RNase MRP: a 247-nucleotide sequence from Manihot esculenta.
The source organism's lineage runs through Eukaryota, Viridiplantae, Spermatophyta, Euphorbiaceae and Manihot.
From the family's description: RNase MRP is an enzymatically active ribonucleoprotein with two distinct roles in eukaryotes. In mitochondria it plays a direct role in the initiation of mitochondrial DNA replication. In the nucleus it is involved in precursor rRNA processing, where it cleaves the internal transcribed spacer 1 between 18S and 5.8S rRNAs. Despite distinct functions, RNase MRP has been shown to be evolutionarily related to RNase P. Like eukaryotic RNase P, RNase MRP is not catalytically active without associated protein subunits.
For this family Rfam cites "Secondary structure of RNase MRP RNA as predicted by phylogenetic comparison" (Schmitt et al., FASEB J, 1993).
Rfam classes the family as a ribozyme.
[Rfam]
RNA sequence: UCUCCGGGAGUCGGAGUGGUUGGGUGAUGCAUUCACCCAGGAAAGUCCCCGGGCCCUCUUCUGCAGAGAUGCAGCCCCGGAAACGGGAGAACCUUGUGGCAUGGAAUCUUACUCACGAUUUGUGAGGGGCUGAGACGCGUGUGGAGCCUUCAGAGUCCAUGCCCAAGAAAAUUGGCCGUUGCUUUCACAGUUAUCCACUCGGUCCACUGUUGUGGGCUAACUGAACGGGGCUUACGACCUCCUGGUG
Numbered sequence: 001u002c003u004c005c006g007g008g009a010g011u012c013g014g015a016g017u018g019g020u021u022g023g024g025u026g027a028u029g030c031a032u033u034c035a036c037c038c039a040g041g042a043a044a045g046u047c048c049c050c051g052g053g054c055c056c057u058c059u060u061c062u063g064c065a066g067a068g069a070u071g072c073a074g075c076c077c078c079g080g081a082a083a084c085g086g087g088a089g090a091a092c093c094u095u096g097u098g099g100c101a102u103g104g105a106a107u108c109u110u111a112c113u114c115a116c117g118a119u120u121u122g123u124g125a126g127g128g129g130c131u132g133a134g135a136c137g138c139g140u141g142u143g144g145a146g147c148c149u150u151c152a153g154a155g156u157c158c159a160u161g162c163c164c165a166a167g168a169a170a171a172u173u174g175g176c177c178g179u180u181g182c183u184u185u186c187a188c189a190g191u192u193a194u195c196c197a198c199u200c201g202g203u204c205c206a207c208u209g210u211u212g213u214g215g216g217c218u219a220a221c222u223g224a225a226c227g228g229g230g231c232u233u234a235c236g237a238c239c240u241c242c243u244g245g246u247g
Base pairs, nucleotide, nucleotide: 002247004245005244006243007242008241009240010239014200015199016198017197018196019195021039022038023037024036025035026034027033043233044232045231047230048229049228050227062073063072064071065070076087077086078085079084091172099162100161101160102159103158104157116155119152127149128148129147130146137142202217203216204215205214206213207212